[Rfam]
RNA: OmrA-B family
RNA sequence: CCCAGAGGUAUUGAUUGGUGGUAAAUCGAUGGACUCUGUCGAGUAAAUCGCAGAAGUACAUUGAACCAUGAAAUUGCACCAACCUACGCGGAUGCGUAGGUUUUUUUU
Numbered sequence: 001c002c003c004a005g006a007g008g009u010a011u012u013g014a015u016u017g018g019u020g021g022u023a024a025a026u027c028g029a030u031g032g033a034c035u036c037u038g039u040c041g042a043g044u045a046a047a048u049c050g051c052a053g054a055a056g057u058a059c060a061u062u063g064a065a066c067c068a069u070g071a072a073a074u075u076g077c078a079c080c081a082a083c084c085u086a087c088g089c090g091g092a093u094g095c096g097u098a099g100g101u102u103u104u105u106u107u108u
Base pairs, nucleotide, nucleotide: 016081017080018079019078020077028062029061030060031059033057034056035055082101083100084099085098086097087096088095089094